[Rfam]
RNA sequence: UGGCCAUAGAAUAACUUAUUCUGUAGCCACUUUGAGUUACGGUAAUUACUAUUCUAAUUUACGAGAUUACAGUAACUACUUACUAAGUGAUUUACUAUAAUAUUAUGGUAAAUAUCACCGUGAGUUGUAAUAACACGAGUAUCGUAAAUAUAUAUUCAUGUUAUCAUAAAUUGGUAUAAACAUUAUCGUAAAUCAAGGUGGCUAUAGAAUAAGUUUUAUAUAUA
Numbered sequence: 001u002g003g004c005c006a007u008a009g010a011a012u013a014a015c016u017u018a019u020u021c022u023g024u025a026g027c028c029a030c031u032u033u034g035a036g037u038u039a040c041g042g043u044a045a046u047u048a049c050u051a052u053u054c055u056a057a058u059u060u061a062c063g064a065g066a067u068u069a070c071a072g073u074a075a076c077u078a079c080u081u082a083c084u085a086a087g088u089g090a091u092u093u094a095c096u097a098u099a100a101u102a103u104u105a106u107g108g109u110a111a112a113u114a115u116c117a118c119c120g121u122g123a124g125u126u127g128u129a130a131u132a133a134c135a136c137g138a139g140u141a142u143c144g145u146a147a148a149u150a151u152a153u154a155u156u157c158a159u160g161u162u163a164u165c166a167u168a169a170a171u172u173g174g175u176a177u178a179a180a181c182a183u184u185a186u187c188g189u190a191a192a193u194c195a196a197g198g199u200g201g202c203u204a205u206a207g208a209a210u211a212a213g214u215u216u217u218a219u220a221u222a223u224a
Stems, first nucleotide, its partner, number of pairs: 006223003010219001011217001013215021037191010050178003054174008065165003069161003072157001074155001080147004087142003091138002093132002096129006103122001108116001

The record is a 224-nucleotide sequence from Miscanthus lutarioriparius, which matches "MIR6217 microRNA precursor family" in Rfam. The family's consensus secondary structure was predicted with RNAalifold. Taxonomically the source falls in Miscanthus (Eukaryota, Euphyllophyta, Spermatophyta, Saccharinae).